[Rfam]
The family of this 45-nucleotide RNA from Nocardioides dongxiaopingii is "L31-Actinobacteria ribosomal protein leader".

RNA sequence: CCGGUUCCGGUUCACGUCGCGCGCCGUGCGACGACCCGGAGCACC
Dot-bracket structure: ..(((.((((....((((((((...))))))))..))))...)))

Source information: The match comes from Rfam's covariance-model search (46 bits).